[Rfam]
About this RNA:
The family of this 155-nucleotide RNA sequence from Serratia fonticola is "EFASI RNA". Rfam classes the family as a small RNA.
RNA sequence: UCGACUCGGUAACGAUGGCAACAUUAGCGAAAGCUGAUGGAUGGAGGUGACCUGGCAGUAGUCAGGUACCGGCGAAAGCCGCAAGCAGCUCAGCGAGCUGUGGAUACCUCACAAGAACUCAACAUUUUGCCACUCCGACGCACAGUUAUCAGUCG
Numbered sequence: 001u002c003g004a005c006u007c008g009g010u011a012a013c014g015a016u017g018g019c020a021a022c023a024u025u026a027g028c029g030a031a032a033g034c035u036g037a038u039g040g041a042u043g044g045a046g047g048u049g050a051c052c053u054g055g056c057a058g059u060a061g062u063c064a065g066g067u068a069c070c071g072g073c074g075a076a077a078g079c080c081g082c083a084a085g086c087a088g089c090u091c092a093g094c095g096a097g098c099u100g101u102g103g104a105u106a107c108c109u110c111a112c113a114a115g116a117a118c119u120c121a122a123c124a125u126u127u128u129g130c131c132a133c134u135c136c137g138a139c140g141c142a143c144a145g146u147u148a149u150c151a152g153u154c155g
Stems, first nucleotide, its partner, number of pairs: 002155004008150006019043002022039006044110004051066005086103001087099005